[Rfam]
RNA: ZMP/ZTP riboswitch aptamer (pfl RNA motif)
RNA sequence: UCGGGCCAUCGCAACUGGCGUAAAGAUGGGUCACCAUCGGGGAGCGACAUAUCGUCAUCGGCCGUGCGCCUGGGCUGGUGGA
Dot-bracket structure: ..((....((((..(([[[[[....((((....))))..))..))))....)).....(((((..]]]]]..))))).....